[Rfam]
This 139-nucleotide RNA sequence from Nocardioides perillae belongs to the Rfam family "SAM riboswitch aptamer (S box leader)".
RNA sequence: AGCUCAUCGAGAGGGACUGAGGGAACGGCCCUGUGACGUCCCGGCAACCGCCGCGAACCUUCCUGCACCGCCCGGUGCAGUCGCGGAAGUGGUGCCGACACCGGCCCGGGGCGAAGUCCGCCUCAGGGAAUGAUGAGGA
Number, nucleotide and partner (000 for none) at each position: 001a000002g000003c137004u136005c135006a134007u133008c132009g000010a000011g000012a000013g042014g041015g040016a039017c038018u000019g000020a000021g031022g030023g029024a000025a000026c103027g102028g101029c023030c022031c021032u000033g000034u000035g000036a000037c000038g017039u016040c015041c014042c013043g096044g095045c094046a093047a000048c092049c091050g000051c086052c085053g084054c083055g082056a081057a000058c000059c000060u000061u000062c000063c000064u000065g000066c000067a000068c000069c000070g000071c000072c000073c000074g000075g000076u000077g000078c000079a000080g000081u056082c055083g054084c053085g052086g051087a000088a000089g000090u000091g049092g048093u046094g045095c044096c043097g000098a000099c000100a131101c028102c027103g026104g000105c128106c127107c126108g000109g124110g123111g000112c000113g000114a000115a000116g000117u000118c000119c000120g000121c000122c000123u110124c109125a000126g107127g106128g105129a000130a000131u100132g008133a007134u006135g005136a004137g003138g000139a000

Lineage of the source: Bacteria > Actinomycetes > Propionibacteriales > Nocardioidaceae > Nocardioides. Rfam 15.1 lists 9,625 matches to the family in 4,158 species.